Annotation:
Streptomyces RNA 2736: a 63-nucleotide RNA from Streptomyces diacarni. Identified by deep sequencing of transcriptome at the end of exponential growth phase. Appears smaller on northern blot than sequencing transcript. This indicates processing step. Streptomyces specific. NCBI's taxonomy places the organism under Bacteria, Actinomycetota, Kitasatosporales, Streptomycetaceae, Streptomyces. The base pairs follow the family's consensus structure. The match comes from Rfam's covariance-model search (47 bits).
[Rfam]
RNA sequence: CGCCCGGCCAGGAUCCCGUGGGGGGAAUCCAUGACCGGGAAGAGAAAGCGCCCCGUCGACGGG
Dot-bracket structure: (((((((..((((((((.....))).)))).)..)))))..(.(......).)......))..